[Rfam]
RNA sequence: GGCAUAAGCCUCCCGGUGGAUGGCUCGGCUCGGGCGCCGACGAAGGGCGCGGCAAGCGGCGAUAUGCCCGGGGUAGGGGCAAGCACCCGUUGAUCCCGGGAUCCCCGAAUGGGAAUUCCUGGCGGAGCUUAACAGGCUCCGCCGCCCCGUAAGGGGCGGGAACCCCCCGAACGGAAACAUCUUAGUAGGGGGAGGAAAAGAAAUCAAACGAGAUCCCCCGAGUAGGGGCGACCGAAAGGGGGGCAGCCCAAACCAAAUCCCGGGGCCGUAAGGUCUCGGGAGAUGUGGUGUUUUGCCCUGGCGGUGGGCGGAGCCCGGGCUACCCGGGGGCCUAGCCGAACUCCCCUGGAAUGGGGGGCCAUAGAGGGUGACAGCCCCGUAGGCUAAAGGCUACCCGGGGGCCUGAGCCAGGGCAGAGUAUCAUCCCCUGGUUUGGGGGUGGGAAGAUGGGGGACACGUGCCUCCAAGGCUAAAUACGUCCCGAGACCGAUAGCGAACUAAGUACCGUGAGGGAAAGCUGAAAAGCACCCCUAACGGGGGGUGAAAAGAGCCUGAAACCGGGAGGUCACGCAG
Number, nucleotide and partner (000 for none) at each position: 001g000002g000003c000004a000005u000006a000007a000008g566009c565010c564011u563012c562013c561014c560015g559016g558017u000018g000019g000020a000021u000022g552023g518024c517025u000026c000027g488028g487029c485030u484031c483032g482033g481034g480035c478036g477037c000038c000039g000040a000041c000042g000043a000044a000045g106046g105047g104048c061049g060050c059051g000052g000053c000054a000055a000056g000057c000058g000059g050060c049061g048062a000063u000064a000065u000066g000067c100068c099069c098070g097071g096072g095073g000074u000075a000076g088077g087078g086079g000080c000081a000082a000083g000084c000085a000086c078087c077088c076089g000090u000091u000092g000093a000094u000095c072096c071097c070098g069099g068100g067101a000102u000103c000104c047105c046106c045107g000108a000109a000110u000111g120112g119113g118114a000115a000116u000117u000118c113119c112120u111121g000122g000123c000124g000125g000126a000127g000128c000129u000130u000131a000132a000133c000134a000135g000136g000137c000138u000139c000140c000141g000142c000143c000144g000145c156146c155147c154148c153149g000150u000151a000152a000153g148154g147155g146156g145157c000158g000159g000160g000161a000162a000163c194164c192165c191166c190167c189168c188169g000170a000171a000172c000173g000174g181175a180176a000177a000178c000179a000180u175181c174182u000183u000184a000185g000186u000187a000188g168189g167190g166191g165192g164193a000194g163195g000196a000197a000198a000199a000200g000201a000202a000203a000204u211205c210206a000207a000208a000209c000210g205211a204212g000213a000214u000215c242216c241217c240218c239219c238220g000221a000222g000223u000224a000225g233226g232227g000228g000229c000230g000231a000232c226233c225234g000235a000236a000237a000238g219239g218240g217241g216242g215243g000244c000245a471246g470247c469248c468249c000250a000251a000252a000253c288254c287255a286256a000257a000258u000259c000260c000261c000262g000263g276264g275265g000266c273267c272268g000269u000270a000271a000272g267273g266274u000275c264276u263277c000278g000279g000280g000281a000282g000283a000284u000285g000286u255287g254288g253289u000290g000291u000292u000293u000294u000295g000296c000297c000298c000299u410300g409301g408302c407303g000304g000305u000306g000307g000308g000309c000310g000311g000312a000313g000314c000315c000316c000317g000318g000319g402320c401321u400322a000323c000324c000325c000326g000327g000328g000329g000330g000331c000332c000333u000334a000335g384336c383337c382338g000339a000340a000341c357342u000343c356344c355345c354346c353347u000348g000349g000350a000351a000352u000353g346354g345355g344356g343357g341358g000359c000360c364361a000362u000363a000364g360365a000366g378367g377368g376369u000370g000371a000372c000373a000374g000375c000376c368377c367378c366379g000380u000381a000382g337383g336384c335385u000386a000387a000388a000389g000390g000391c000392u000393a000394c000395c000396c000397g000398g000399g000400g321401g320402c319403c000404u000405g000406a000407g302408c301409c300410a299411g000412g000413g000414c000415a000416g000417a000418g000419u000420a000421u442422c441423a440424u439425c438426c437427c436428c000429u000430g000431g000432u000433u000434u000435g000436g427437g426438g425439g424440u423441g422442g421443g000444a000445a000446g000447a000448u000449g465450g464451g463452g462453g461454a000455c000456a000457c000458g000459u000460g000461c453462c452463u451464c450465c449466a000467a000468g248469g247470c246471u245472a000473a000474a000475u000476a000477c036478g035479u000480c034481c033482c032483g031484a030485g029486a000487c028488c027489g000490a000491u000492a000493g000494c000495g000496a000497a000498c000499u000500a000501a000502g000503u000504a000505c512506c511507g000508u000509g000510a000511g506512g505513g000514a000515a000516a000517g024518c023519u000520g000521a000522a000523a000524a000525g000526c000527a000528c000529c000530c000531c000532u000533a000534a000535c000536g000537g000538g000539g000540g000541g000542u000543g000544a000545a000546a000547a000548g000549a000550g000551c000552c022553u000554g000555a000556a000557a000558c016559c015560g014561g013562g012563a011564g010565g009566u008567c000568a000569c000570g000571c000572a000573g000